A member of the RNA family "FMN riboswitch aptamer (RFN element)" from Paenibacillus ferrarius, 147 nucleotides long. Lineage of the source: Bacteria > Bacillati > Bacilli > Caryophanales > Paenibacillus. The base pairs follow the family's consensus structure, which is taken from published work. From the family's description: The RFN element is a highly conserved domain that is found frequently in the 5'-untranslated regions of prokaryotic mRNAs that encode for flavin mononucleotide (FMN) biosynthesis and transport proteins. This element is a metabolite-dependent riboswitch that directly binds FMN in the absence of proteins.

RNA sequence: UCUUUUCUUCGGGGCAGGGUGAAAUUCCCUACCGGCGGUGAGGAUGCAUUCGUGUAUCUCAAGCCCGCGACUCCCAGCUGUAUUGGUUGGGACUGACUUGGUGUAAUUCCAAGGCCGACGGUAUAGUCCGGAUGGGAGAAGGUGAAG
Numbered sequence: 001u002c003u004u005u006u007c008u009u010c011g012g013g014g015c016a017g018g019g020u021g022a023a024a025u026u027c028c029c030u031a032c033c034g035g036c037g038g039u040g041a042g043g044a045u046g047c048a049u050u051c052g053u054g055u056a057u058c059u060c061a062a063g064c065c066c067g068c069g070a071c072u073c074c075c076a077g078c079u080g081u082a083u084u085g086g087u088u089g090g091g092a093c094u095g096a097c098u099u100g101g102u103g104u105a106a107u108u109c110c111a112a113g114g115c116c117g118a119c120g121g122u123a124u125a126g127u128c129c130g131g132a133u134g135g136g137a138g139a140a141g142g143u144g145a146a147g
Stems, first nucleotide, its partner, number of pairs: 003145002006142005017029003031127002033117002035068004063115002072092002097113005119130003